[Rfam]
Small nucleolar RNA U6-47: a 123-nucleotide RNA sequence from Caenorhabditis japonica.
Gene Ontology terms of the family: nucleolus and RNA processing.
Pairs were carried over by alignment from the consensus structure, which was predicted with WAR.

RNA sequence: UUGCAAUGGUGAGAUCGAAUCACGAGAAAGUCGUUUAUCGCUGAACUAAAAGACCGAUUCCUUCGUUCGGAAGUCAUGUCGAUCGGCGGAAUGGACGAGCGUCUAAUCUUCUCUCUGAGCAAG
Numbered sequence: 001u002u003g004c005a006a007u008g009g010u011g012a013g014a015u016c017g018a019a020u021c022a023c024g025a026g027a028a029a030g031u032c033g034u035u036u037a038u039c040g041c042u043g044a045a046c047u048a049a050a051a052g053a054c055c056g057a058u059u060c061c062u063u064c065g066u067u068c069g070g071a072a073g074u075c076a077u078g079u080c081g082a083u084c085g086g087c088g089g090a091a092u093g094g095a096c097g098a099g100c101g102u103c104u105a106a107u108c109u110u111c112u113c114u115c116u117g118a119g120c121a122a123g
Base pairs, nucleotide, nucleotide: 001122002121003120004119
A reference for the family is Zemann et al. (2006), "Evolution of small nucleolar RNAs in nematodes", Nucleic Acids Res. The organism belongs to Caenorhabditis, within Eukaryota. It is annotated as a C/D-box small nucleolar RNA.